[Rfam]
Source information
Rfam assigns this 84-nucleotide RNA from Gouania willdenowi to the family "Small nucleolar RNA SNORD11B". The family's consensus secondary structure was predicted with WAR.
RNA sequence: UGACGGUGGUGAUGAUCAUGGCAGUUGUCAUUUUCCUGAACUCAACCGUGUUGGCUUUCAGUCACUACCUCUUCUGAACCGUCA
Numbered sequence: 001u002g003a004c005g006g007u008g009g010u011g012a013u014g015a016u017c018a019u020g021g022c023a024g025u026u027g028u029c030a031u032u033u034u035c036c037u038g039a040a041c042u043c044a045a046c047c048g049u050g051u052u053g054g055c056u057u058u059c060a061g062u063c064a065c066u067a068c069c070u071c072u073u074c075u076g077a078a079c080c081g082u083c084a
Stems, first nucleotide, its partner, number of pairs: 002083006
Notes
NCBI's taxonomy places the organism under Eukaryota, Euteleosteomorpha, Ovalentaria, Gobiesocoidei, Gouania.